[Rfam]
RNA: Small nucleolar RNA U2-19
Organism: Rousettus aegyptiacus
RNA sequence: GAUCAGUGAUGAAAAUAUCCAAAUCUGAGGAUCAGACCUUCCUGUCUGCCUGAUGCAUGAUCUCUGUAGUUCUGAAA
Numbered sequence: 001g002a003u004c005a006g007u008g009a010u011g012a013a014a015a016u017a018u019c020c021a022a023a024u025c026u027g028a029g030g031a032u033c034a035g036a037c038c039u040u041c042c043u044g045u046c047u048g049c050c051u052g053a054u055g056c057a058u059g060a061u062c063u064c065u066g067u068a069g070u071u072c073u074g075a076a077a
Base pairs, nucleotide, nucleotide: 029056031054032053033052034047035046036045037044